[Rfam]
RNA sequence: GCUGCCGGGAUGCGAUGAACCGCCGGGCGAAUGCUGGUCGCCCAGGGUCCCCCGGACAGGGACCCGCCCCGGCGGGGAGCGAGAGGCGAAACCGAGCCCGAAUCAGU
Numbered sequence: 001g002c003u004g005c006c007g008g009g010a011u012g013c014g015a016u017g018a019a020c021c022g023c024c025g026g027g028c029g030a031a032u033g034c035u036g037g038u039c040g041c042c043c044a045g046g047g048u049c050c051c052c053c054g055g056a057c058a059g060g061g062a063c064c065c066g067c068c069c070c071g072g073c074g075g076g077g078a079g080c081g082a083g084a085g086g087c088g089a090a091a092c093c094g095a096g097c098c099c100g101a102a103u104c105a106g107u
Stems, first nucleotide, its partner, number of pairs: 001107004006100004011081003020075008036093002038089005